[Rfam]
RNA sequence: AGAGCGGGGAUUGUGUGUAUCGGUGUUGUGCUGCAAUCAAUGCACUCUUCCGAAAGACUUCCCUGCAAUAUUAUUUUGAGAAAGUGGGCAGUUGUGUUUCAUCUUUUUUUGAAAAUCACAACAAUCAUUUUCCCUACACCU
Numbered sequence: 001a002g003a004g005c006g007g008g009g010a011u012u013g014u015g016u017g018u019a020u021c022g023g024u025g026u027u028g029u030g031c032u033g034c035a036a037u038c039a040a041u042g043c044a045c046u047c048u049u050c051c052g053a054a055a056g057a058c059u060u061c062c063c064u065g066c067a068a069u070a071u072u073a074u075u076u077u078g079a080g081a082a083a084g085u086g087g088g089c090a091g092u093u094g095u096g097u098u099u100c101a102u103c104u105u106u107u108u109u110u111g112a113a114a115a116u117c118a119c120a121a122c123a124a125u126c127a128u129u130u131u132c133c134c135u136a137c138a139c140c141u
Stems, first nucleotide, its partner, number of pairs: 004066007015045006078134001080132008091122004